Rfam assigns this 204-nucleotide RNA from Medicago truncatula to the family "MIR2670 microRNA precursor family". NCBI's taxonomy places the organism under Eukaryota, Embryophyta, Magnoliopsida, Gunneridae, Medicago. The base pairs follow the family's consensus structure, which was predicted with RNAalifold.
RNA sequence: CUUGAGGUAAAAAGUGGCUAGCCAGCUUGGGAAAAAAGAGAUCAACCCUUGGGAUAAAAUUAAGUUUUCUUCUUAUUACCCCAAAAACUUUUUACCGUGGGUAAAAAGACUCUUCUUGGGGUAUAAAAAGAAUAAAAUUUAGAUUUAGCCUAAGGGUUGAUGAUGUCUUUUCCCCCAAGAAGGUUGGUCACUAUUUACCCCAUG
Number, nucleotide and partner (000 for none) at each position: 001c000002u000003u202004g201005a000006g199007g198008u197009a196010a195011a194012a000013a192014g191015u190016g189017g188018c187019u186020a185021g184022c183023c182024a000025g000026c179027u178028u177029g176030g175031g174032a000033a171034a170035a169036a000037a000038g000039a000040g000041a164042u163043c162044a161045a157046c156047c155048c000049u153050u152051g151052g150053g149054a000055u147056a146057a145058a144059a000060u142061u141062a140063a139064g138065u137066u136067u135068u134069c000070u132071u131072c130073u129074u128075a000076u126077u123078a122079c121080c120081c119082c118083a117084a116085a000086a000087a000088c108089u107090u106091u105092u104093u103094a102095c101096c100097g000098u000099g000100g096101g095102u094103a093104a092105a091106a090107a089108g088109a000110c000111u000112c000113u000114u000115c000116u084117u083118g082119g081120g080121g079122u078123a077124u000125a000126a076127a000128a074129a073130g072131a071132a070133u000134a068135a067136a066137a065138u064139u063140u062141a061142g060143a000144u058145u057146u056147a055148g000149c053150c052151u051152a050153a049154g000155g047156g046157u045158u000159g000160a000161u044162g043163a042164u041165g000166u000167c000168u000169u035170u034171u033172c000173c000174c031175c030176c029177a028178a027179g026180a000181a000182g023183g022184u021185u020186g019187g018188u017189c016190a015191c014192u013193a000194u011195u010196u009197a008198c007199c006200c000201c004202a003203u000204g000